Rfam assigns this 128-nucleotide RNA sequence from Priestia taiwanensis to the family "Ribosomal protein L20 leader". Lineage of the source: Bacteria > Bacillati > Bacillota > Bacilli > Priestia. For this family Rfam cites "Diverse mechanisms for regulating ribosomal protein synthesis in Escherichia coli" (Zengel and Lindahl, Prog Nucleic Acid Res Mol Biol, 1994). Pairs were carried over by alignment from the consensus structure, which was predicted with CMfinder. The match comes from Rfam's covariance-model search (81 bits).
RNA sequence: GUAUGCAAGAAGAAGCACCCGCUUCUCACCUGGUUGACACAAUUGUAGUUAACAGGUUUACGAUGAUUACAUUUAAUGUGUGAAGUCAUAAGUGUGGGUGCGUCAUGUACUCACACUUUUUUGUUGAG
Numbered sequence: 001g002u003a004u005g006c007a008a009g010a011a012g013a014a015g016c017a018c019c020c021g022c023u024u025c026u027c028a029c030c031u032g033g034u035u036g037a038c039a040c041a042a043u044u045g046u047a048g049u050u051a052a053c054a055g056g057u058u059u060a061c062g063a064u065g066a067u068u069a070c071a072u073u074u075a076a077u078g079u080g081u082g083a084a085g086u087c088a089u090a091a092g093u094g095u096g097g098g099u100g101c102g103u104c105a106u107g108u109a110c111u112c113a114c115a116c117u118u119u120u121u122u123g124u125u126g127a128g
Stems, first nucleotide, its partner, number of pairs: 011026006028057003036050003039046002093115010